[Rfam]
RNA sequence: UGGUGUUUUUUCCUCAAUGACACGUUUUCUCCCGGAUUGCUGGCAGCUUGAACGCAACCGGGAAUUUCGUGUCAGCAAAGAAUGGCACCU
Dot-bracket structure: .((((((..(((.....(((((((.....((((((.((((..(.........)))))))))))....))))))).....))).)))))).
Numbered sequence: 001u002g003g004u005g006u007u008u009u010u011u012c013c014u015c016a017a018u019g020a021c022a023c024g025u026u027u028u029c030u031c032c033c034g035g036a037u038u039g040c041u042g043g044c045a046g047c048u049u050g051a052a053c054g055c056a057a058c059c060g061g062g063a064a065u066u067u068c069g070u071g072u073c074a075g076c077a078a079a080g081a082a083u084g085g086c087a088c089c090u
Stems, first nucleotide, its partner, number of pairs: 002089006010082003018074007030063006037057004043053001

Description: The family of this 90-nucleotide RNA sequence from Austrofundulus limnaeus is "mir-731 microRNA precursor family". Rfam 15.1 lists 91 matches to the family in 80 species. The match comes from Rfam's covariance-model search (80 bits).